[Rfam]
RNA sequence: ACGGAACAGAAUUGAGCGGGGGACACCACCAUGUUUAUGGACGAAGUAGUACUCGCAGGCAUCGUCAUCGUCAUCCUUACCGCAGGUUUCCUCGGUGGAUUCGGAUAUUUCGUCUGGAAGGACGCCCAGAAGGGCAAGAAGAGCAGCUGAUCCUUUCCGACACACAGAGCACGCAAGGCAUUUGGGGCGACUUCGGUCGCCCGUUUUUUUG
Numbered sequence: 001a002c003g004g005a006a007c008a009g010a011a012u013u014g015a016g017c018g019g020g021g022g023a024c025a026c027c028a029c030c031a032u033g034u035u036u037a038u039g040g041a042c043g044a045a046g047u048a049g050u051a052c053u054c055g056c057a058g059g060c061a062u063c064g065u066c067a068u069c070g071u072c073a074u075c076c077u078u079a080c081c082g083c084a085g086g087u088u089u090c091c092u093c094g095g096u097g098g099a100u101u102c103g104g105a106u107a108u109u110u111c112g113u114c115u116g117g118a119a120g121g122a123c124g125c126c127c128a129g130a131a132g133g134g135c136a137a138g139a140a141g142a143g144c145a146g147c148u149g150a151u152c153c154u155u156u157c158c159g160a161c162a163c164a165c166a167g168a169g170c171a172c173g174c175a176a177g178g179c180a181u182u183u184g185g186g187g188c189g190a191c192u193u194c195g196g197u198c199g200c201c202c203g204u205u206u207u208u209u210u211g
Stems, first nucleotide, its partner, number of pairs: 005096001007094001046056002075082001169179002172177001185202007